[Rfam]
RNA sequence: UCCCAGUGACGAGUUGCCAUGCUGAUACUGAGAGGGCAUCAUUGCCCUCGUUUGGGUGCCAGUGAGUUUAACAAAACUUCUCCAUGGAGACCUGAAGGAC
Numbered sequence: 001u002c003c004c005a006g007u008g009a010c011g012a013g014u015u016g017c018c019a020u021g022c023u024g025a026u027a028c029u030g031a032g033a034g035g036g037c038a039u040c041a042u043u044g045c046c047c048u049c050g051u052u053u054g055g056g057u058g059c060c061a062g063u064g065a066g067u068u069u070a071a072c073a074a075a076a077c078u079u080c081u082c083c084a085u086g087g088a089g090a091c092c093u094g095a096a097g098g099a100c
Stems, first nucleotide, its partner, number of pairs: 001099003032049005

This 100-nucleotide sequence from Ictidomys tridecemlineatus belongs to the Rfam family "Small nucleolar RNA U6-53/MBII-28".
The base pairs follow the family's consensus structure.
The organism belongs to Ictidomys, within Eukaryota.